Shown here is a 79-nucleotide sequence from Micromonospora endolithica, a member of the family "ZMP/ZTP riboswitch aptamer (pfl RNA motif)". Lineage of the source: Bacteria > Actinomycetota > Actinomycetes > Micromonosporales > Micromonospora. It scores 40 bits against the family's covariance model. The base pairs follow the family's consensus structure, which is taken from published work.

RNA sequence: UGCGCGCGACUGGCGGCACGGGGAUGGCGACCACCAUCGGGGAGCUCGUCGCGGGAGGUCGACCGCCUGGGUCUCCCGC
Numbered sequence: 001u002g003c004g005c006g007c008g009a010c011u012g013g014c015g016g017c018a019c020g021g022g023g024a025u026g027g028c029g030a031c032c033a034c035c036a037u038c039g040g041g042g043a044g045c046u047c048g049u050c051g052c053g054g055g056a057g058g059u060c061g062a063c064c065g066c067c068u069g070g071g072u073c074u075c076c077c078g079c
Base pairs, nucleotide, nucleotide: 002049003048004047006045007044010041011040012067013066014065015064016063024037025036026035027034056074057073058072059071060070